Rfam assigns this 62-nucleotide RNA to the family "RAGATH-18 RNA". The base pairs follow the family's consensus structure, which is taken from published work. Rfam describes the family as follows. Actinobacteria, Firmicutes, Fusobacteria, Thermotogae (1 example).
[Rfam]
RNA sequence: CCUGUGGAGUGUCAUAACAAACGCAAGUAGCUUCGGCCAAAGCGGACACAAUGAAUCAGGAA
Dot-bracket structure: ((((....(((((........(((.....((....))....)))))))).......))))..